[Rfam]
RNA sequence: CUGGGGAGCAGGGCUUAGCUGCUUGUGAGCAGGUCCACAGCAAGUCGUGUUCACAGUGGCUAAGUUCCGCCCCCUGG
Numbered sequence: 001c002u003g004g005g006g007a008g009c010a011g012g013g014c015u016u017a018g019c020u021g022c023u024u025g026u027g028a029g030c031a032g033g034u035c036c037a038c039a040g041c042a043a044g045u046c047g048u049g050u051u052c053a054c055a056g057u058g059g060c061u062a063a064g065u066u067c068c069g070c071c072c073c074c075u076g077g
Base pairs, nucleotide, nucleotide: 011067012066013065014064015063016062017061018060019059020058025054026053027052028051029050030049031048
Notes
Rfam assigns this 77-nucleotide sequence from Sus scrofa to the family "mir-27 microRNA precursor family". Rfam's curators put it in the seed alignment. The base pairs follow the family's consensus structure, which was predicted with RNAalifold.